A member of the RNA family "Small nucleolar RNA SNORA65" from Betta splendens, 127 nucleotides long. The base pairs follow the family's consensus structure, which was predicted with RNAalifold. For this family Rfam cites "RNomics: an experimental approach that identifies 201 candidates for novel, small, non-messenger RNAs in mouse" (Huttenhofer et al., EMBO J, 2001). U65 belongs to the H/ACA class of snoRNAs which are thought to guide the sites of modification of uridines to pseudouridines. The source organism's lineage runs through Eukaryota, Eumetazoa, Deuterostomia, Chordata and Betta. A search with the family's covariance model found it, with a score of 95 bits.
[Rfam]
RNA sequence: CCCGCCACUAUGCCUGUCUGUCAGAGUGACUGAGUAUGAUCCAGUGGGGGCUCAGAUUAACCCGGCUUUAGGAAACAGAGCUGUCCAAACAAAAGGGCAGCUCUGUGCCGAAAAGUCUGGAACACUU
Numbered sequence: 001c002c003c004g005c006c007a008c009u010a011u012g013c014c015u016g017u018c019u020g021u022c023a024g025a026g027u028g029a030c031u032g033a034g035u036a037u038g039a040u041c042c043a044g045u046g047g048g049g050g051c052u053c054a055g056a057u058u059a060a061c062c063c064g065g066c067u068u069u070a071g072g073a074a075a076c077a078g079a080g081c082u083g084u085c086c087a088a089a090c091a092a093a094a095g096g097g098c099a100g101c102u103c104u105g106u107g108c109c110g111a112a113a114a115g116u117c118u119g120g121a122a123c124a125c126u127u
Stems, first nucleotide, its partner, number of pairs: 005047005018034002020031001021029002062120004066115004071109002076105006084097003

Clan: SNORA65 clan.